[Rfam]
RNA sequence: AUCACCCCGCUGUCUGUUGGCUAGGAUCAAAUGUAGUAUGUUUUUACCAGCUUACCAUCUGAUACAUCCUCUAUCUGAGGACAAUAUGGGUUUCUGGAGCAGGGGGAUGGAAAAGGAGCUUGCUCCAUCCACUCCUAUGCAUCAACCUGGUAUUGCAGGACCUCCAGUAACAGUACAUCACCA
Numbered sequence: 001a002u003c004a005c006c007c008c009g010c011u012g013u014c015u016g017u018u019g020g021c022u023a024g025g026a027u028c029a030a031a032u033g034u035a036g037u038a039u040g041u042u043u044u045u046a047c048c049a050g051c052u053u054a055c056c057a058u059c060u061g062a063u064a065c066a067u068c069c070u071c072u073a074u075c076u077g078a079g080g081a082c083a084a085u086a087u088g089g090g091u092u093u094c095u096g097g098a099g100c101a102g103g104g105g106g107a108u109g110g111a112a113a114a115g116g117a118g119c120u121u122g123c124u125c126c127a128u129c130c131a132c133u134c135c136u137a138u139g140c141a142u143c144a145a146c147c148u149g150g151u152a153u154u155g156c157a158g159g160a161c162c163u164c165c166a167g168u169a170a171c172a173g174u175a176c177a178u179c180a181c182c183a
Base pairs, nucleotide, nucleotide: 008025012021013020014019045064046063048061049060050059067081068080069079070078071077103136104135105134106133108131109130110129115126116125117124118123139176141174142173147167148166149165150164